malK-III RNA: a 94-nucleotide sequence.
RNA sequence: AUCCGUCGGAACGCGUACGGGGUCCGUCCGAGUCCACCCCGGUGGCCGGAUGCAUGGACCCGCGCAGGGUCGUCGGACAGGAGGAUCUGGCAUG
Number, nucleotide and partner (000 for none) at each position: 001a000002u000003c000004c000005g000006u000007c000008g000009g000010a000011a000012c000013g000014c064015g063016u062017a000018c000019g000020g061021g060022g059023u058024c057025c056026g051027u050028c049029c000030g000031a000032g000033u000034c045035c044036a043037c042038c000039c000040c000041g000042g037043u036044g035045g034046c000047c000048g000049g028050a027051u026052g000053c000054a000055u000056g025057g024058a023059c022060c021061c020062g016063c015064g014065c000066a000067g000068g000069g000070u000071c000072g000073u000074c000075g000076g000077a000078c000079a000080g000081g000082a000083g000084g000085a000086u000087c000088u000089g000090g000091c000092a000093u000094g000

It is annotated as a cis-regulatory element.